[Rfam]
RNA: Plastid-ndhJ 3UTR RNA
RNA sequence: ACGCGAACUUUGUACUGUGCACAUUACUUAGACGGGUUCUAGAAAGGCAUAUAGAAA
Number, nucleotide and partner (000 for none) at each position: 001a000002c000003g000004c000005g000006a000007a000008c000009u000010u000011u000012g000013u000014a000015c000016u000017g000018u000019g037020c036021a000022c034023a000024u032025u031026a000027c000028u000029u000030a000031g025032a024033c000034g022035g000036g020037u019038u000039c000040u000041a000042g000043a000044a000045a000046g000047g000048c000049a000050u000051a000052u000053a000054g000055a000056a000057a000